[Rfam]
RNA: Selenocysteine transfer RNA
Organism: Amycolatopsis taiwanensis
RNA sequence: GGAGGCGUACCCGGCCUGGUGGCCGGCGCGGUCUUCAAAACCGUUGAGCGGUGGACACCACCGCUGGCGGGUUCGAUUCCCGUCCGCCUCC
Numbered sequence: 001g002g003a004g005g006c007g008u009a010c011c012c013g014g015c016c017u018g019g020u021g022g023c024c025g026g027c028g029c030g031g032u033c034u035u036c037a038a039a040a041c042c043g044u045u046g047a048g049c050g051g052u053g054g055a056c057a058c059c060a061c062c063g064c065u066g067g068c069g070g071g072u073u074c075g076a077u078u079c080c081c082g083u084c085c086g087c088c089u090c091c
Stems, first nucleotide, its partner, number of pairs: 001091007009083001011026006028044005047065005068082004
Dot-bracket structure: (((((((.(.((((((....)))))).(((((.......)))))..(((((.........)))))..((((.......))))).)))))))